[Rfam]
RNA sequence: GCUGGCUGAGGUAGUAGUUUGUGCUGUUGGUCGGGUUGUCACGUUGCUCCCGUUAUGGAGAUGACUGCGCAAUCUACUGCCUUGCCGGC
Numbered sequence: 001g002c003u004g005g006c007u008g009a010g011g012u013a014g015u016a017g018u019u020u021g022u023g024c025u026g027u028u029g030g031u032c033g034g035g036u037u038g039u040c041a042c043g044u045u046g047c048u049c050c051c052g053u054u055a056u057g058g059a060g061a062u063g064a065c066u067g068c069g070c071a072a073u074c075u076a077c078u079g080c081c082u083u084g085c086c087g088g089c
Stems, first nucleotide, its partner, number of pairs: 001089006008083010019072006026065002032052004053060002
Dot-bracket structure: ((((((.((((((((((.((((((.((....((((.............))))((....))...)).)))))).))))))))))))))))
Description:
A member of the RNA family "let-7 microRNA precursor family" from Pleuronectes platessa, 89 nucleotides long. The organism belongs to Pleuronectes, within Eukaryota. The family's consensus secondary structure was predicted with RNAalifold. A search with the family's covariance model found it, with a score of 64 bits.